[Rfam]
The family of this 46-nucleotide RNA from Nocardioides luteus is "L31-Actinobacteria ribosomal protein leader". It is one of the family's seed sequences. It is annotated as a cis-regulatory leader.

RNA sequence: UCGGUGCCGGUUCACGUCCCGCAACCUGCGGCGGCGACCCGGAACC
Numbered sequence: 001u002c003g004g005u006g007c008c009g010g011u012u013c014a015c016g017u018c019c020c021g022c023a024a025c026c027u028g029c030g031g032c033g034g035c036g037a038c039c040c041g042g043a044a045c046c
Stems, first nucleotide, its partner, number of pairs: 003046003007042004015036004019031004